[Rfam]
RNA sequence: GUACUGGAUGGGAGUUAUACCGUUGUGACCCAUUGCUGGAAACUGAAGGAGAGCGAUCGCCAGGUUUUCGGACAGUUC
Numbered sequence: 001g002u003a004c005u006g007g008a009u010g011g012g013a014g015u016u017a018u019a020c021c022g023u024u025g026u027g028a029c030c031c032a033u034u035g036c037u038g039g040a041a042a043c044u045g046a047a048g049g050a051g052a053g054c055g056a057u058c059g060c061c062a063g064g065u066u067u068u069c070g071g072a073c074a075g076u077u078c
Stems, first nucleotide, its partner, number of pairs: 001078001003076004009032004037070008
Dot-bracket structure: (.((((..((((................))))....((((((((..................))))))))..)))).)
The family of this 78-nucleotide RNA sequence from Pleurocapsa sp. PCC 7319 is "CyVA-1 RNA".
Rfam classes the family as a small RNA.
About the family: Cyanobacteria, Acidobacteria (1 example), Verrucomicrobia (1 example).
The sequence is in the family's curated seed alignment.